A member of the RNA family "Potassium channel RNA editing signal" from Carassius auratus, 114 nucleotides long. Lineage of the source: Eukaryota > Bilateria > Euteleostomi > Cyprinoidei > Carassius. Its family is annotated with adenosine to inosine editing in the Gene Ontology. Rfam 15.1 lists 14,095 matches to the family in 1,000 species. Pairs were carried over by alignment from the consensus structure, which is taken from published work.
[Rfam]
RNA sequence: GUAGGGUAUGGUGACAUGGUUCCAACAACCAUUGGAGGCAAGAUUGUAGGAUCUCUGUGCGCUAUCGCUGGUGUGCUGACCAUUGCCUUGCCCGUGCCUGUCAUAGUCUCCAAC
Numbered sequence: 001g002u003a004g005g006g007u008a009u010g011g012u013g014a015c016a017u018g019g020u021u022c023c024a025a026c027a028a029c030c031a032u033u034g035g036a037g038g039c040a041a042g043a044u045u046g047u048a049g050g051a052u053c054u055c056u057g058u059g060c061g062c063u064a065u066c067g068c069u070g071g072u073g074u075g076c077u078g079a080c081c082a083u084u085g086c087c088u089u090g091c092c093c094g095u096g097c098c099u100g101u102c103a104u105a106g107u108c109u110c111c112a113a114c
Stems, first nucleotide, its partner, number of pairs: 001114002004111002008107002011104001013102004018097001021094001037077004049063002